A member of the RNA family "Small nucleolar RNA Z118/Z121/Z120" from Eragrostis curvula, 92 nucleotides long.
RNA sequence: UGUUUGCCUUGAUAACAUCUACAAGGAAGGUAUCUGAGUAAGGUUGCCCCUUCUGUGAUUGCAUCCAAACUGAUAGAGAUUCUGAGCAGACG
Numbered sequence: 001u002g003u004u005u006g007c008c009u010u011g012a013u014a015a016c017a018u019c020u021a022c023a024a025g026g027a028a029g030g031u032a033u034c035u036g037a038g039u040a041a042g043g044u045u046g047c048c049c050c051u052u053c054u055g056u057g058a059u060u061g062c063a064u065c066c067a068a069a070c071u072g073a074u075a076g077a078g079a080u081u082c083u084g085a086g087c088a089g090a091c092g
Stems, first nucleotide, its partner, number of pairs: 001092007038054001040052004

By type it is a C/D-box small nucleolar RNA. The match comes from Rfam's covariance-model search (72 bits).